RNA: rne-II RNA
RNA sequence: AUACGUGUAGGGUGGAGAUGCACAACCGUCGGACUGUGUAGCAUUAGGCUUUAUCAAGACGCUUCAUCUCGUCCACAGUCGCCGGUUGAUUCCUCCUCCUGACAGACUUUUGCUUAAGCGGUGCCUUAGUCACCACAGCAAGCAGGACGCGUAAGUCGCGACUUCGUUCUUAGUUACCCGGACGAACCUCGCUAGACACUCGAGUGGUCAACCACUCCUGACGCACCUGACACCGACCGUGAGAAGUCGUGUGUGCCGAACGCCGUUUCCGGCAGCCCGGAAACCGA
Numbered sequence: 001a002u003a004c005g006u007g008u009a010g011g012g013u014g015g016a017g018a019u020g021c022a023c024a025a026c027c028g029u030c031g032g033a034c035u036g037u038g039u040a041g042c043a044u045u046a047g048g049c050u051u052u053a054u055c056a057a058g059a060c061g062c063u064u065c066a067u068c069u070c071g072u073c074c075a076c077a078g079u080c081g082c083c084g085g086u087u088g089a090u091u092c093c094u095c096c097u098c099c100u101g102a103c104a105g106a107c108u109u110u111u112g113c114u115u116a117a118g119c120g121g122u123g124c125c126u127u128a129g130u131c132a133c134c135a136c137a138g139c140a141a142g143c144a145g146g147a148c149g150c151g152u153a154a155g156u157c158g159c160g161a162c163u164u165c166g167u168u169c170u171u172a173g174u175u176a177c178c179c180g181g182a183c184g185a186a187c188c189u190c191g192c193u194a195g196a197c198a199c200u201c202g203a204g205u206g207g208u209c210a211a212c213c214a215c216u217c218c219u220g221a222c223g224c225a226c227c228u229g230a231c232a233c234c235g236a237c238c239g240u241g242a243g244a245a246g247u248c249g250u251g252u253g254u255g256c257c258g259a260a261c262g263c264c265g266u267u268u269c270c271g272g273c274a275g276c277c278c279g280g281a282a283a284c285c286g287a
Stems, first nucleotide, its partner, number of pairs: 014096004023088006030081003036076003040050003058073004097147005150223003155197003158192004165184004202217006230254004234249004265284007